[Rfam]
Description: FMN riboswitch aptamer (RFN element): a 153-nucleotide RNA from Pseudovibrio axinellae. The match comes from Rfam's covariance-model search (113 bits). The base pairs follow the family's consensus structure, which is taken from published work. The organism belongs to Pseudovibrio, within Bacteria. The literature on the family includes a 2002 paper in Nucleic Acids Res by Vitreschak et al., "Regulation of riboflavin biosynthesis and transport genes in bacteria by transcriptional and translational attenuation".
RNA sequence: GCUAAUUCUCAGGGCGGGGUGCAAUUCCCUACCGGUGGUGAUAGGCAGUUUUGGGCCCUAAGUCCACGAGCGCUUUCCUGCUUGCAGGAAGGGUCAGCAGAUCCGGUGAGAACCCGGAACCGACGGUUAUAGUCCGGAUGAAAGAGAAUGUAG
Numbered sequence: 001g002c003u004a005a006u007u008c009u010c011a012g013g014g015c016g017g018g019g020u021g022c023a024a025u026u027c028c029c030u031a032c033c034g035g036u037g038g039u040g041a042u043a044g045g046c047a048g049u050u051u052u053g054g055g056c057c058c059u060a061a062g063u064c065c066a067c068g069a070g071c072g073c074u075u076u077c078c079u080g081c082u083u084g085c086a087g088g089a090a091g092g093g094u095c096a097g098c099a100g101a102u103c104c105g106g107u108g109a110g111a112a113c114c115c116g117g118a119a120c121c122g123a124c125g126g127u128u129a130u131a132g133u134c135c136g137g138a139u140g141a142a143a144g145a146g147a148a149u150g151u152a153g
Stems, first nucleotide, its partner, number of pairs: 005149006017029003031133002033122002035067004062120002070098002102118005124136003